[Rfam]
RNA sequence: AGCCGUGCGGUGGGCACAGAGCGAACUAUUCUUUCGCCUUUUACUAAAGAAUACCGUGUGCUCGUCGCUUAUAGCGGCAUACGCCUAUUUUUGGAGGCCUUUUUCCUUUUCUGGAAUGG
Numbered sequence: 001a002g003c004c005g006u007g008c009g010g011u012g013g014g015c016a017c018a019g020a021g022c023g024a025a026c027u028a029u030u031c032u033u034u035c036g037c038c039u040u041u042u043a044c045u046a047a048a049g050a051a052u053a054c055c056g057u058g059u060g061c062u063c064g065u066c067g068c069u070u071a072u073a074g075c076g077g078c079a080u081a082c083g084c085c086u087a088u089u090u091u092u093g094g095a096g097g098c099c100u101u102u103u104u105c106c107u108u109u110u111c112u113g114g115a116a117u118g119g
Stems, first nucleotide, its partner, number of pairs: 003077004008067011027053008098119002101116004
Dot-bracket structure: ..((((.(((((((((((........((((((((...........))))))))...)))))))))))......))))....................((.((((........)))).))
Shown here is a 119-nucleotide sequence from Gossypium australe, a member of the family "U5 spliceosomal RNA". It is annotated as a spliceosomal small nuclear RNA. U5 RNA is a component of both types of known spliceosome. It scores 84 bits against the family's covariance model.